Shown here is a 144-nucleotide sequence from Lysinibacillus sp. BF-4, a member of the family "Ribosomal protein L10 leader". The match comes from Rfam's covariance-model search (79 bits). The family's RNA type in Rfam is cis-regulatory leader. Pairs were carried over by alignment from the consensus structure, which was predicted with CMfinder. On this family, see Yakhnin et al., Nucleic Acids Res 2015: "Ribosomal protein L10(L12)4 autoregulates expression of the Bacillus subtilis rplJL operon by a transcription attenuation mechanism".

[Rfam]
RNA sequence: GUGAAUCAUCCAUUUGUACCGUAGACAGUAGGAGUGCUUAGUCACUUAAUAUCCUACCGAGGACAACGGAAUUCAGAUUCUUUUUAAGAUGAUGAUAUUCUGCCUCUAUGUCUGCUCUAGAUAUAGAGGCUUUUUUCGGUAUAA
Numbered sequence: 001g002u003g004a005a006u007c008a009u010c011c012a013u014u015u016g017u018a019c020c021g022u023a024g025a026c027a028g029u030a031g032g033a034g035u036g037c038u039u040a041g042u043c044a045c046u047u048a049a050u051a052u053c054c055u056a057c058c059g060a061g062g063a064c065a066a067c068g069g070a071a072u073u074c075a076g077a078u079u080c081u082u083u084u085u086a087a088g089a090u091g092a093u094g095a096u097a098u099u100c101u102g103c104c105u106c107u108a109u110g111u112c113u114g115c116u117c118u119a120g121a122u123a124u125a126g127a128g129g130c131u132u133u134u135u136u137c138g139g140u141a142u143a144a
Stems, first nucleotide, its partner, number of pairs: 028057006034045003103129010